The record is a 54-nucleotide sequence from Oncorhynchus tshawytscha, which matches "UnaL2 LINE 3' element" in Rfam. The eel long interspersed element (LINE) UnaL2 and its partner short interspersed element (SINE) share a conserved 3' tail containing a stem-loop that is critical for their retrotransposition. The family's consensus secondary structure is taken from published work. Gene Ontology term of the family: transposition, RNA-mediated.
[Rfam]
RNA sequence: UGCAUGCAUGACUGUACGUCACUUCUGAUAGAAGUGUCUGUUAAAUGGCAUAUA
Numbered sequence: 001u002g003c004a005u006g007c008a009u010g011a012c013u014g015u016a017c018g019u020c021a022c023u024u025c026u027g028a029u030a031g032a033a034g035u036g037u038c039u040g041u042u043a044a045a046u047g048g049c050a051u052a053u054a
Stems, first nucleotide, its partner, number of pairs: 013043001014041003020036006